[Rfam]
RNA sequence: AUGCGAUGAUGAUUCAACUGUGGUUUCAAUUCACUGACAAUAAAAUGAGGAUGUGAAUUUCCUUGGCUGUGUCUGAGCAU
Numbered sequence: 001a002u003g004c005g006a007u008g009a010u011g012a013u014u015c016a017a018c019u020g021u022g023g024u025u026u027c028a029a030u031u032c033a034c035u036g037a038c039a040a041u042a043a044a045a046u047g048a049g050g051a052u053g054u055g056a057a058u059u060u061c062c063u064u065g066g067c068u069g070u071g072u073c074u075g076a077g078c079a080u
Stems, first nucleotide, its partner, number of pairs: 001080004
About this RNA
The family of this 80-nucleotide sequence from Chrysemys picta is "Small nucleolar RNA SNORD53/SNORD92". Rfam links the family to the GO terms RNA processing and nucleolus. Pairs were carried over by alignment from the consensus structure.